[Rfam]
RNA sequence: CCAAAGGCUCUUUUCAGAGCCACCCAACAGUUCACAAUAGAGAGCUG
Dot-bracket structure: .....((((((....))))))..........................
RNA: Histone 3' UTR stem-loop
Organism: Peromyscus maniculatus